[Rfam]
RNA: Bacteroidete tryptophan peptide leader RNA
Organism: Macellibacteroides fermentans
RNA sequence: CCGAUAUAACAACAAACGAGAUGAGAACUAUAAUGGUUAAUACAUAUUGGUGGCGCUUCUUACAACUCACAAAGUCGUAAGGAACAGUCCUGUGUAUAUCCAUAAAGUAUAAGAUAUUUUAGAAGGCCUGCC
Numbered sequence: 001c002c003g004a005u006a007u008a009a010c011a012a013c014a015a016a017c018g019a020g021a022u023g024a025g026a027a028c029u030a031u032a033a034u035g036g037u038u039a040a041u042a043c044a045u046a047u048u049g050g051u052g053g054c055g056c057u058u059c060u061u062a063c064a065a066c067u068c069a070c071a072a073a074g075u076c077g078u079a080a081g082g083a084a085c086a087g088u089c090c091u092g093u094g095u096a097u098a099u100c101c102a103u104a105a106a107g108u109a110u111a112a113g114a115u116a117u118u119u120u121a122g123a124a125g126g127c128c129u130g131c132c
Stems, first nucleotide, its partner, number of pairs: 036103002040099003044095004049091002052088001057084004063077001065075003